[Rfam]
RNA sequence: GAAAGGCCGUUCAUCGUCGUGCGGCUGGAUGCAGAAAGCAUCCCAUUUAAG
Numbered sequence: 001g002a003a004a005g006g007c008c009g010u011u012c013a014u015c016g017u018c019g020u021g022c023g024g025c026u027g028g029a030u031g032c033a034g035a036a037a038g039c040a041u042c043c044c045a046u047u048u049a050a051g
Stems, first nucleotide, its partner, number of pairs: 005026006027043006
Rfam assigns this 51-nucleotide RNA sequence to the family "S4-Clostridia ribosomal protein leader".